The record is a 260-nucleotide RNA sequence from Streptomyces dysideae, which matches "Streptomyces sRNA 4677" in Rfam. Pairs were carried over by alignment from the consensus structure. Located in the intergenic region between anti-sigma factor SCO4677 gene and a putative regulatory protein gene SCO4676. scr4677 expression requires the SCO4677 activity and scr4677 sRNA itself seem to affect the levels of the SCO4676-associated transcripts. The family's RNA type in Rfam is small RNA.
[Rfam]
RNA sequence: UGCUCCGGUGCCGGGGGCGACCUCCCCCAAGGACCGCGAGAGGGAAAGGACCCCACCAAACCCCACCCCUCCCUCCCGCCCGCCCGCCCGCCCGCAGCGCAAACUCACCCUCGCGAGUGAACAUCACCAACUCAGCUGGAUUUCGGCCUGGUUGCCUGUCCUACGCUCAGCGCAACACAACCGCAGACAUGCAACGGCCCUCGCCGGGACUGCAAUCCCAGUGCGAGGGCCUGACCACCAAGGAAGACGGAACCUUCCCG
Numbered sequence: 001u002g003c004u005c006c007g008g009u010g011c012c013g014g015g016g017g018c019g020a021c022c023u024c025c026c027c028c029a030a031g032g033a034c035c036g037c038g039a040g041a042g043g044g045a046a047a048g049g050a051c052c053c054c055a056c057c058a059a060a061c062c063c064c065a066c067c068c069c070u071c072c073c074u075c076c077c078g079c080c081c082g083c084c085c086g087c088c089c090g091c092c093c094g095c096a097g098c099g100c101a102a103a104c105u106c107a108c109c110c111u112c113g114c115g116a117g118u119g120a121a122c123a124u125c126a127c128c129a130a131c132u133c134a135g136c137u138g139g140a141u142u143u144c145g146g147c148c149u150g151g152u153u154g155c156c157u158g159u160c161c162u163a164c165g166c167u168c169a170g171c172g173c174a175a176c177a178c179a180a181c182c183g184c185a186g187a188c189a190u191g192c193a194a195c196g197g198c199c200c201u202c203g204c205c206g207g208g209a210c211u212g213c214a215a216u217c218c219c220a221g222u223g224c225g226a227g228g229g230c231c232u233g234a235c236c237a238c239c240a241a242g243g244a245a246g247a248c249g250g251a252a253c254c255u256u257c258c259c260g
Stems, first nucleotide, its partner, number of pairs: 007239004016092004105120004110115001135171005196231005202225003206219004242258005